Lysine riboswitch aptamer: a 174-nucleotide sequence from Anaerocolumna cellulosilytica. About the family: Riboswitches are metabolite binding domains within certain messenger RNAs that serve as precision sensors for their corresponding targets. Pairs were carried over by alignment from the consensus structure, which is taken from published work. It scores 128 bits against the family's covariance model.
RNA sequence: AUAAUUGGUAGAGGCGCAUUUUUUAAGAGUAUAUUGCAGGAUAUGGCAGACAUAAGGGAAUGCAAUAGAAAGGAAAAGAUGCCGAAAUCAAGACAAGCUGCGGUGUUUUGGUUGGGCAUAUGGUUAAGAGCCAUGUGACUGUCAUCAUUUUUAUGAUGGAGUGCUGCCUAAAGA
Numbered sequence: 001a002u003a004a005u006u007g008g009u010a011g012a013g014g015c016g017c018a019u020u021u022u023u024u025a026a027g028a029g030u031a032u033a034u035u036g037c038a039g040g041a042u043a044u045g046g047c048a049g050a051c052a053u054a055a056g057g058g059a060a061u062g063c064a065a066u067a068g069a070a071a072g073g074a075a076a077a078g079a080u081g082c083c084g085a086a087a088u089c090a091a092g093a094c095a096a097g098c099u100g101c102g103g104u105g106u107u108u109u110g111g112u113u114g115g116g117c118a119u120a121u122g123g124u125u126a127a128g129a130g131c132c133a134u135g136u137g138a139c140u141g142u143c144a145u146c147a148u149u150u151u152u153a154u155g156a157u158g159g160a161g162u163g164c165u166g167c168c169u170a171a172a173g174a
Stems, first nucleotide, its partner, number of pairs: 007168005016082009032067007086113010114140002117137008142159007